The family of this 125-nucleotide RNA sequence from Otolemur garnettii is "U4atac minor spliceosomal RNA". U4atac is an essential component of the minor U12-type spliceosome complex which is required for removal of the rarer class of eukaryotic introns (AT-AC, U12-type). A search with the family's covariance model found it, with a score of 97 bits. Pairs were carried over by alignment from the consensus structure, which is taken from published work. It is annotated as a spliceosomal small nuclear RNA. A reference for the family is Davila Lopez et al. (2008), "Computational screen for spliceosomal RNA genes aids in defining the phylogenetic distribution of major and minor spliceosomal components", Nucleic Acids Res.

[Rfam]
RNA sequence: AACCUCCUUUUCUUGGGGUUGUGCAACUGCCCAAUGAGUGCCUAGUGAGGGCAGUACUACUAAUGCUACACUACACACCUUUGUCAACUAGAGCUUUGCUUUAACUUGGUGCAAUUUUUGGAAAA
Numbered sequence: 001a002a003c004c005u006c007c008u009u010u011u012c013u014u015g016g017g018g019u020u021g022u023g024c025a026a027c028u029g030c031c032c033a034a035u036g037a038g039u040g041c042c043u044a045g046u047g048a049g050g051g052c053a054g055u056a057c058u059a060c061u062a063a064u065g066c067u068a069c070a071c072u073a074c075a076c077a078c079c080u081u082u083g084u085c086a087a088c089u090a091g092a093g094c095u096u097u098g099c100u101u102u103a104a105c106u107u108g109g110u111g112c113a114a115u116u117u118u119u120g121g122a123a124a125a
Base pairs, nucleotide, nucleotide: 006018007017008016009015021060022059023058026055027054028053029052030051031050032049038046039045082111083110084109085108086107089103090102091101092100093099094098